[Rfam]
RNA sequence: CCACCAUCCAGAGCGGCCGAGAGAUCUGGCUCGACGACGCCGCAGCAGCCCAGGCAGGGUCCACCACUGCCCAGGGUGCUACCGCCAGGACCGAUGGAGG
Numbered sequence: 001c002c003a004c005c006a007u008c009c010a011g012a013g014c015g016g017c018c019g020a021g022a023g024a025u026c027u028g029g030c031u032c033g034a035c036g037a038c039g040c041c042g043c044a045g046c047a048g049c050c051c052a053g054g055c056a057g058g059g060u061c062c063a064c065c066a067c068u069g070c071c072c073a074g075g076g077u078g079c080u081a082c083c084g085c086c087a088g089g090a091c092c093g094a095u096g097g098a099g100g
Stems, first nucleotide, its partner, number of pairs: 001100002004097005013043005021032003026088004044080004049076002053071005084092001